[Rfam]
RNA sequence: CUGACCGACUCGAAAGGGGAGGCGAGCGUGUGGCAGAAGUCAGCAGAGGGCAUAGUAUUCGGUGGAAACGAGCCGGGCC
Numbered sequence: 001c002u003g004a005c006c007g008a009c010u011c012g013a014a015a016g017g018g019g020a021g022g023c024g025a026g027c028g029u030g031u032g033g034c035a036g037a038a039g040u041c042a043g044c045a046g047a048g049g050g051c052a053u054a055g056u057a058u059u060c061g062g063u064g065g066a067a068a069c070g071a072g073c074c075g076g077g078c079c
Stems, first nucleotide, its partner, number of pairs: 001026002005022002009018003040047002049079003058072004
This 79-nucleotide RNA from Desulfotignum phosphitoxidans belongs to the Rfam family "Group II catalytic intron D1-D4-1". The family has 237 seed sequences and 2,508 matches in Rfam 15.1. Group II introns are found in rRNA, tRNA and mRNA of organelles in fungi, plants and protists, and also in mRNA in bacteria. Pairs were carried over by alignment from the consensus structure.